[Rfam]
RNA: c-di-AMP riboswitch aptamer (ydaO/yuaA leader)
Organism: Actinoplanes auranticolor
RNA sequence: GACGGGCCACCGCCCAAUCGUCGCGAGACGAACCGGGGACCCCGCAGUUCUGGGGUAAAGCCACCAGCAGCACGGUGGCCGGGCGCGCUUCCCGCCCGCACCCGUCAGCUAACCCGGUCGGCGGCCGAGGGAAGAAAG
Numbered sequence: 001g002a003c004g005g006g007c008c009a010c011c012g013c014c015c016a017a018u019c020g021u022c023g024c025g026a027g028a029c030g031a032a033c034c035g036g037g038g039a040c041c042c043c044g045c046a047g048u049u050c051u052g053g054g055g056u057a058a059a060g061c062c063a064c065c066a067g068c069a070g071c072a073c074g075g076u077g078g079c080c081g082g083g084c085g086c087g088c089u090u091c092c093c094g095c096c097c098g099c100a101c102c103c104g105u106c107a108g109c110u111a112a113c114c115c116g117g118u119c120g121g122c123g124g125c126c127g128a129g130g131g132a133a134g135a136a137a138g
Stems, first nucleotide, its partner, number of pairs: 011123004018031005032118006042052001053103003061078004081097004